Shown here is a 165-nucleotide RNA from Phormidesmis priestleyi, a member of the family "Group II catalytic intron D1-D4-3". It scores 134 bits against the family's covariance model. The base pairs follow the family's consensus structure. About the family: Group II introns are found in rRNA, tRNA and mRNA of organelles in fungi, plants and protists, and also in mRNA in bacteria.
[Rfam]
RNA sequence: GUUCUCGCGAGGGAAGGUCUGGAGGAAGCCAGCGGCAAACCGACGAGCCGACGAACAGAAACGUCAUAGAAGGCUGAGACCUCUGGGUGAGUUGGCACAACACAACGAAACCCUUGGUUCAAGGGGUGCAGUAAAUGACGCGGUUGCGGCGGGAGAGAUCACGGU
Numbered sequence: 001g002u003u004c005u006c007g008c009g010a011g012g013g014a015a016g017g018u019c020u021g022g023a024g025g026a027a028g029c030c031a032g033c034g035g036c037a038a039a040c041c042g043a044c045g046a047g048c049c050g051a052c053g054a055a056c057a058g059a060a061a062c063g064u065c066a067u068a069g070a071a072g073g074c075u076g077a078g079a080c081c082u083c084u085g086g087g088u089g090a091g092u093u094g095g096c097a098c099a100a101c102a103c104a105a106c107g108a109a110a111c112c113c114u115u116g117g118u119u120c121a122a123g124g125g126g127u128g129c130a131g132u133a134a135a136u137g138a139c140g141c142g143g144u145u146g147c148g149g150c151g152g153g154a155g156a157g158a159u160c161a162c163g164g165u
Stems, first nucleotide, its partner, number of pairs: 002015005028165003036157001040152003044148002046145005062140006073132003079127006085113004091106004